The family of this 112-nucleotide RNA sequence from Methylibium sp. NZG is "Glycine riboswitch aptamer". Rfam links the family to the GO term glycine biosynthetic process. It scores 62 bits against the family's covariance model. NCBI's taxonomy places the organism under Bacteria, Pseudomonadati, Burkholderiales, Sphaerotilaceae, Methylibium.
RNA sequence: CGUUUCCUCACUGGAGAGAGGCCCACUCCGAGUGGGCCCACCGAAGGGGCAAGCAAGGCGCUGCACGCAGCGACGCGCGAAUCUCUCAGGUAAAGCGGACAGAGAGGGCUUU
Dot-bracket structure: .....((((.(((......((((...........)))).(((((..(((...((......................))....))))).)))........))).)))).....